[Rfam]
RNA sequence: GCAUGGUAAUGGAUUUAUGGCGGGUCCUUCUGUGUGGGCCUCUCAUAGUGUGCCCAUGCCAGAGUGAACUGCAGCCUCGAACUGUUGCCCAGCCCCCUUACAGUGAACUGUGAGCUCAUUGAGUGAGGUCGUACGGUU
Numbered sequence: 001g002c003a004u005g006g007u008a009a010u011g012g013a014u015u016u017a018u019g020g021c022g023g024g025u026c027c028u029u030c031u032g033u034g035u036g037g038g039c040c041u042c043u044c045a046u047a048g049u050g051u052g053c054c055c056a057u058g059c060c061a062g063a064g065u066g067a068a069c070u071g072c073a074g075c076c077u078c079g080a081a082c083u084g085u086u087g088c089c090c091a092g093c094c095c096c097c098u099u100a101c102a103g104u105g106a107a108c109u110g111u112g113a114g115c116u117c118a119u120u121g122a123g124u125g126a127g128g129u130c131g132u133a134c135g136g137u138u
Stems, first nucleotide, its partner, number of pairs: 001059004005054004015048006022041003025037002072131001074129004083121002088114001090110003095105001